[Rfam]
RNA sequence: UGAACCCUGCUGGGCCGAAGUCUAACGCACCGCGUCAGAUACAUUGUAGGCUAGGUGGGGUUCU
Numbered sequence: 001u002g003a004a005c006c007c008u009g010c011u012g013g014g015c016c017g018a019a020g021u022c023u024a025a026c027g028c029a030c031c032g033c034g035u036c037a038g039a040u041a042c043a044u045u046g047u048a049g050g051c052u053a054g055g056u057g058g059g060g061u062u063c064u
Stems, first nucleotide, its partner, number of pairs: 002063010013052004020040004025035004
Overview
The record is a 64-nucleotide RNA sequence, which matches "DUF3800-VIII RNA" in Rfam. Pairs were carried over by alignment from the consensus structure, which is taken from published work. Rfam describes the family as follows. Bacteroidetes, Cyanobacteria, Firmicutes, Planctomycetes (1 example), Proteobacteria, Tenericutes (1 example).